Record summary
A member of the RNA family "Hepatitis C virus (HCV) cis-acting replication element (CRE)" from Orthohepacivirus hominis, 178 nucleotides long. A reference for the family is Fricke et al. (2015), "Conserved RNA secondary structures and long-range interactions in hepatitis C viruses", RNA. The sequence is in the family's curated seed alignment. Pairs were carried over by alignment from the consensus structure, which was predicted with RNAfold. NCBI's taxonomy places the organism under Viruses, Orthornavirae, Flasuviricetes, Hepaciviridae, Orthohepacivirus hominis. Gene Ontology term of the family: viral genome replication.
RNA sequence: CCAUUGCCAGCCGCGUCCAAGCUUGACUUGUCAAAUUGGUUCACGGCUGGCUACGGCGGGGGGGACAUAUAUCACAGCGUGUCCUGGGCCCGACCCCGCUUAUUACUCCUGUGCCUGCUCCUACUUACCGUAGGGGUAGGCAUCUUUCUGCUUCCCGCCCGGUAGGCGGUUAGCAUAA
Numbered sequence: 001c002c003a004u005u006g007c008c009a010g011c012c013g014c015g016u017c018c019a020a021g022c023u024u025g026a027c028u029u030g031u032c033a034a035a036u037u038g039g040u041u042c043a044c045g046g047c048u049g050g051c052u053a054c055g056g057c058g059g060g061g062g063g064g065a066c067a068u069a070u071a072u073c074a075c076a077g078c079g080u081g082u083c084c085u086g087g088g089c090c091c092g093a094c095c096c097c098g099c100u101u102a103u104u105a106c107u108c109c110u111g112u113g114c115c116u117g118c119u120c121c122u123a124c125u126u127a128c129c130g131u132a133g134g135g136g137u138a139g140g141c142a143u144c145u146u147u148c149u150g151c152u153u154c155c156c157g158c159c160c161g162g163u164a165g166g167c168g169g170u171u172a173g174c175a176u177a178a
Stems, first nucleotide, its partner, number of pairs: 006051008018039001020037002023034004055100007062085006112142013151173002155169003159166001